[Rfam]
RNA sequence: GAUAGCCAUAGAUGAUCGCUGGGUUGAGGGUUGGCUCGCUGAUCACCCGCACUGUUUGGCUGGUGGCGUCGUAAAGCCCCCCCCAGAACAUAGCUUUCAUUACGAGCAGUAAGGCCCCCGCUCCCAAGAAAAGGAGGUGAUGGCCCAGGAUUAGGCCGAGCUGCUUGGGGUCGUCCCA
Numbered sequence: 001g002a003u004a005g006c007c008a009u010a011g012a013u014g015a016u017c018g019c020u021g022g023g024u025u026g027a028g029g030g031u032u033g034g035c036u037c038g039c040u041g042a043u044c045a046c047c048c049g050c051a052c053u054g055u056u057u058g059g060c061u062g063g064u065g066g067c068g069u070c071g072u073a074a075a076g077c078c079c080c081c082c083c084c085a086g087a088a089c090a091u092a093g094c095u096u097u098c099a100u101u102a103c104g105a106g107c108a109g110u111a112a113g114g115c116c117c118c119c120g121c122u123c124c125c126a127a128g129a130a131a132a133g134g135a136g137g138u139g140a141u142g143g144c145c146c147a148g149g150a151u152u153a154g155g156c157c158g159a160g161c162u163g164c165u166u167g168g169g170g171u172c173g174u175c176c177c178a
Stems, first nucleotide, its partner, number of pairs: 136175006144169005

A member of the RNA family "Antisense RNA which regulates isiA expression" from Gloeomargaritaceae cyanobacterium C42_A2020_066, 178 nucleotides long. The organism belongs to Gloeomargaritaceae, within Bacteria. A reference for the family is Duhring et al. (2006), "An internal antisense RNA regulates expression of the photosynthesis gene isiA", Proc Natl Acad Sci U S A.